[Rfam]
RNA sequence: CGGGGGGAGGGGUUGUCCCUCAGCCUGGAUUGUGAGAGGGCGCAGGCCAGGCCGAGGGACCCCACCGGUGCACA
Dot-bracket structure: ...(.(..((.(..(((((((.(((.((.(((((......))))).)).))).)))))))..).))..).)...